[Rfam]
RNA sequence: UGGGUUACUUCAAACUGGAGCAUUAAUUUGUGUCAUCAAUAAUAAGUGCUUCAUUUUGGGGUAGCUGUA
Numbered sequence: 001u002g003g004g005u006u007a008c009u010u011c012a013a014a015c016u017g018g019a020g021c022a023u024u025a026a027u028u029u030g031u032g033u034c035a036u037c038a039a040u041a042a043u044a045a046g047u048g049c050u051u052c053a054u055u056u057u058g059g060g061g062u063a064g065c066u067g068u069a
Stems, first nucleotide, its partner, number of pairs: 004065008014056001016053009026043003
This 69-nucleotide sequence from Synaphobranchus kaupii belongs to the Rfam family "miR-430 microRNA precursor family". Clan: mir-290 clan. A search with the family's covariance model found it, with a score of 49 bits.